[Rfam]
Nucleotides: 131
Stems, first nucleotide, its partner, number of pairs: 003059004007054003013049002016047006024039004071123003075119002084111001086109002089106004094102001
Number, partner (000 for none) and nucleotide at each position: 001000g002000u003059a004058g005057a006056g007054a008053c009052u010000c011000a012000g013049a014048g015000u016047c017046g018045c019044a020043u021042c022000u023000c024039g025038a026037c027036a028000c029000a030000a031000a032000u033000c034000g035000u036027u037026g038025u039024c040000u041000u042021g043020g044019u045018g046017u047016g048014c049013u050000a051000g052009a053008g054007u055000u056006c057005u058004c059003u060000u061000a062000g063000a064000u065000u066000g067000a068000a069000g070000a071123c072122u073121g074000g075119u076118c077000c078000u079000a080000u081000u082000c083000a084111c085000c086109g087108a088000g089106c090105g091104g092103c093000u094102c095000u096000c097000u098000c099000g100000u101000a102094g103092g104091c105090c106089g107000g108087u109086c110000a111084g112000c113000c114000a115000c116000a117000u118076g119075g120000g121073c122072a123071g124000u125000u126000a127000c128000a129000g130000u131000u
About this RNA: Small nucleolar RNA SNORA3/SNORA45 family: a 131-nucleotide RNA from Collichthys lucidus. The organism belongs to Collichthys, within Eukaryota. Gene Ontology terms of the family: nucleolus and RNA processing. Rfam 15.1 lists 2,080 matches to the family in 639 species. By type it is an H/ACA-box small nucleolar RNA.